[Rfam]
RNA sequence: AAGCGUGGAAGUAAGAUGUUGCGCCAGAGUGCAGUGCCUUACGAGCUUUAUACGGGUUUGACAUUUACCACAAUCUGGCUAGAAACUAUUAGUUUCGAAAGAAAAUGUCGGGG
Numbered sequence: 001a002a003g004c005g006u007g008g009a010a011g012u013a014a015g016a017u018g019u020u021g022c023g024c025c026a027g028a029g030u031g032c033a034g035u036g037c038c039u040u041a042c043g044a045g046c047u048u049u050a051u052a053c054g055g056g057u058u059u060g061a062c063a064u065u066u067a068c069c070a071c072a073a074u075c076u077g078g079c080u081a082g083a084a085a086c087u088a089u090u091a092g093u094u095u096c097g098a099a100a101g102a103a104a105a106u107g108u109c110g111g112g113g
Stems, first nucleotide, its partner, number of pairs: 001048004011042005017036006024078004061108003082096006
Shown here is a 113-nucleotide RNA sequence, a member of the family "drum RNA". From the family's description: Firmicutes, Bacteroidetes (1 example), Proteobacteria (2 examples), Spirochaetes (2 examples).